RNA sequence: GGCAUAUUUUGCCCAGGCGGAGCUCGACCGCCCGUUCAAACGAUGAUCGCCUUUAUCGACGAGCAUCGCGAUGCCCAUGGGGUCGAGCCGAUCUGCAGGGUUCUGCCGAUCGCCCCA
Numbered sequence: 001g002g003c004a005u006a007u008u009u010u011g012c013c014c015a016g017g018c019g020g021a022g023c024u025c026g027a028c029c030g031c032c033c034g035u036u037c038a039a040a041c042g043a044u045g046a047u048c049g050c051c052u053u054u055a056u057c058g059a060c061g062a063g064c065a066u067c068g069c070g071a072u073g074c075c076c077a078u079g080g081g082g083u084c085g086a087g088c089c090g091a092u093c094u095g096c097a098g099g100g101u102u103c104u105g106c107c108g109a110u111c112g113c114c115c116c117a
Base pairs, nucleotide, nucleotide: 016032017031018030019029020028078117079116080115081114082113089112090111092109093108095106096105097104098103